[Rfam]
Nucleotides: 352
Base pairs, nucleotide, nucleotide: 004352005351006350007348008328009327010326011325012324013323014322016033017032018031019030020029021028038346039345040344042343043342044341045340046339047239048238049237050236051235052070053069054068055067056066057065076234077233078232079231080230081104082103083102084101085100105125106123107122108121109120110119111118126229127228129170130169131168132167137161138160139159144155145154146153176227177226178223179222180221191211192210193209194208195207196206198205199204243258244257245256262292263291266288267287268286293313294312295311296310297309298308299307300306
Number, partner (000 for none) and nucleotide at each position: 001000u002000g003000u004352u005351g006350c007348a008328g009327u010326u011325g012324g013323u014322u015000g016033c017032u018031g019030u020029u021028u022000u023000a024000u025000u026000u027000a028021a029020a030019g031018c032017a033016g034000a035000g036000g037000a038346a039345a040344g041000u042343c043342c044341a045340u046339g047239c048238u049237c050236g051235c052070a053069c054068a055067a056066g057065c058000u059000g060000u061000g062000a063000u064000u065057g066056c067055u068054u069053g070052u071000a072000g073000u074000g075000u076234u077233u078232g079231a080230g081104u082103a083102a084101a085100u086000a087000a088000a089000u090000a091000a092000a093000a094000g095000a096000u097000a098000a099000a100085a101084u102083u103082u104081a105125g106123c107122a108121g109120a110119u111118u112000a113000g114000a115000a116000u117000u118111a119110g120109u121108c122107u123106g124000a125105c126229g127228g128000c129170g130169g131168a132167a133000a134000a135000g136000u137161u138160g139159c140000u141000a142000a143000a144155u145154u146153g147000c148000u149000a150000a151000a152000a153146c154145a155144a156000c157000a158000u159139g160138c161137a162000a163000a164000u165000u166000a167132u168131u169130c170129c171000a172000u173000a174000a175000c176227g177226u178223g179222c180221c181000a182000c183000a184000g185000a186000g187000a188000c189000g190000a191211g192210u193209u194208g195207a196206g197000c198205u199204c200000g201000a202000a203000a204199g205198a206196c207195u208194c209193a210192g211191u212000a213000u214000g215000a216000a217000a218000c219000g220000c221180g222179g223178u224000a225000a226177a227176c228127c229126c230080c231079u232078c233077a234076a235051g236050c237049g238048a239047g240000a241000a242000a243258c244257c245256u246000a247000a248000a249000u250000u251000u252000g253000g254000u255000a256245a257244g258243g259000g260000a261000a262292c263291u264000a265000a266288u267287a268286a269000a270000c271000a272000a273000g274000a275000a276000a277000c278000a279000g280000a281000a282000u283000u284000g285000u286268u287267u288266a289000g290000a291263a292262g293313a294312a295311u296310a297309a298308a299307a300306a301000u302000c303000a304000a305000a306300u307299u308298u309297u310296u311295a312294u313293u314000a315000g316000a317000u318000a319000a320000a321000u322014a323013a324012c325011c326010a327009a328008u329000c330000a331000a332000g333000a334000c335000a336000g337000a338000a339046c340045a341044u342043g343042g344040c345039u346038u347000a348007u349000c350006g351005c352004a